[Rfam]
RNA sequence: ACCUAGGGUAGAGGUGCUGUGAUUAUUAGUAUGUGUCCAUAGCUUGCAGGCGAUGAAGGAUGCAGAAAGGGGUUACAGCCGAAGGAAGUAAGUCUGGCAGGGCUACUUUCUGGGUUUGUAUAAAAUAUAUGCAAAACUGUCACUAUUUAUAGUGGAGAGCUACAAGGUUC
Numbered sequence: 001a002c003c004u005a006g007g008g009u010a011g012a013g014g015u016g017c018u019g020u021g022a023u024u025a026u027u028a029g030u031a032u033g034u035g036u037c038c039a040u041a042g043c044u045u046g047c048a049g050g051c052g053a054u055g056a057a058g059g060a061u062g063c064a065g066a067a068a069g070g071g072g073u074u075a076c077a078g079c080c081g082a083a084g085g086a087a088g089u090a091a092g093u094c095u096g097g098c099a100g101g102g103c104u105a106c107u108u109u110c111u112g113g114g115u116u117u118g119u120a121u122a123a124a125a126u127a128u129a130u131g132c133a134a135a136a137c138u139g140u141c142a143c144u145a146u147u148u149a150u151a152g153u154g155g156a157g158a159g160c161u162a163c164a165a166g167g168u169u170c
Stems, first nucleotide, its partner, number of pairs: 008163004016079009032064007083111008093101002112138002115135008140155006